Rfam assigns this 338-nucleotide RNA sequence from Mus musculus to the family "7SK RNA".
Nucleotides: 338
Base pairs, nucleotide, nucleotide: 001108002107003106005102006101007100008099009098010097011096013093014092018090019089024087025086026085027084028083029082030081031080032079033078035074036073037070038069039068042067043066044065045064046062047061048060116172117171118169119168120167121166122139123138124137125136127135128134140162141161142160147158148157149156211338212337215334223329224328226326229324230323231322233320
Number, partner (000 for none) and nucleotide at each position: 001108g002107g003106a004000u005102g006101u007100g008099a009098g010097g011096g012000c013093g014092a015000u016000c017000u018090g019089g020000c021000u022000g023000c024087g025086a026085c027084a028083u029082c030081u031080g032079u033078c034000a035074c036073c037070c038069c039068a040000u041000u042067g043066a044065u045064c046062g047061c048060c049000a050000g051000g052000g053000u054000u055000g056000a057000u058000u059000c060048g061047g062046c063000u064045g065044a066043u067042c068039u069038g070037g071000c072000u073036g074035g075000c076000u077000a078033g079032g080031c081030g082029g083028g084027u085026g086025u087024c088000c089019c090018c091000u092014u093013c094000c095000u096011c097010c098009c099008u100007c101006a102005c103000c104000g105000c106003u107002c108001c109000a110000u111000g112000u113000g114000c115000g116172u117171c118169c119168c120167u121166c122139c123138c124137g125136a126000a127135g128134c129000u130000g131000c132000g133000c134128g135127c136125u137124c138123g139122g140162u141161c142160g143000a144000a145000g146000a147158g148157g149156a150000c151000g152000a153000c154000c155000u156149u157148c158147c159000c160142c161141g162140a163000a164000u165000a166121g167120a168119g169118g170000a171117g172116g173000a174000c175000c176000g177000g178000u179000c180000u181000u182000c183000g184000g185000u186000c187000a188000a189000g190000g191000g192000u193000a194000u195000a196000c197000g198000a199000g200000u201000a202000g203000c204000u205000g206000c207000g208000c209000u210000c211338c212337c213000c214000u215334g216000c217000u218000a219000g220000a221000a222000c223329c224328u225000c226326c227000a228000a229324a230323c231322a232000a233320g234000c235000u236000c237000u238000c239000a240000a241000g242000a243000a244000u245000u246000u247000c248000a249000u250000g251000a252000a253000u254000u255000c256000a257000u258000c259000a260000u261000u262000u263000u264000u265000a266000a267000u268000a269000g270000c271000u272000g273000a274000g275000u276000a277000a278000u279000a280000c281000c282000c283000c284000a285000u286000u287000g288000u289000g290000u291000a292000g293000a294000u295000g296000u297000a298000c299000c300000a301000c302000a303000u304000u305000u306000u307000c308000u309000g310000u311000a312000u313000c314000c315000a316000u317000u318000c319000c320233u321000c322231u323230g324229u325000g326226g327000a328224a329223g330000g331000a332000c333000a334215u335000c336000u337212g338211g
Rfam classes the family as a non-coding RNA gene. Pairs were carried over by alignment from the consensus structure, which is taken from published work. The literature on the family includes a 2002 paper in Curr Biol by Blencowe, "Transcription: surprising role for an elusive small nuclear RNA". From the family's description: 7SK was discovered as an abundant small nuclear RNA in the mid-70s but a possible function has only recently been suggested. Taxonomically the source falls in Mus (Eukaryota, Metazoa, Amniota, Murinae).